[Rfam]
RNA: SAH (S-adenosyl-L-homocysteine) riboswitch aptamer
Organism: Halopseudomonas yangmingensis
RNA sequence: CCGACCGAGGGGCGCUGCAGCGACAUUGGUCGUCAGGCUCGGUCAGGGGUGAACAUGAGUAACCGCGCCCAUUCGCC
Numbered sequence: 001c002c003g004a005c006c007g008a009g010g011g012g013c014g015c016u017g018c019a020g021c022g023a024c025a026u027u028g029g030u031c032g033u034c035a036g037g038c039u040c041g042g043u044c045a046g047g048g049g050u051g052a053a054c055a056u057g058a059g060u061a062a063c064c065g066c067g068c069c070c071a072u073u074c075g076c077c
Base pairs, nucleotide, nucleotide: 003044004043005042006041007040008039021032022031023030024029